Small nucleolar RNA R12: an 83-nucleotide RNA sequence from Hevea brasiliensis. From the family's description: snoR12 is a C/D box small nucleolar RNA, which acts as a methylation guide for 25S ribosomal RNA in plants. snoR12 has been alternatively named snoZ44 in Arabidopsis and snoZ131 in rice. The family has 9 seed sequences and 992 matches in Rfam 15.1. It is annotated as a C/D-box small nucleolar RNA. Rfam links the family to the GO terms RNA processing and nucleolus.
[Rfam]
RNA sequence: AAGAUGGAUGAUGAAUGAAAUCAGACGGAUUCCCACUGAUAUUUUCUAAACAUGAUAUCAUUUACCAGCUACUUCUGACUCUU
Numbered sequence: 001a002a003g004a005u006g007g008a009u010g011a012u013g014a015a016u017g018a019a020a021u022c023a024g025a026c027g028g029a030u031u032c033c034c035a036c037u038g039a040u041a042u043u044u045u046c047u048a049a050a051c052a053u054g055a056u057a058u059c060a061u062u063u064a065c066c067a068g069c070u071a072c073u074u075c076u077g078a079c080u081c082u083u
Base pairs, nucleotide, nucleotide: 001083002082003081004080006079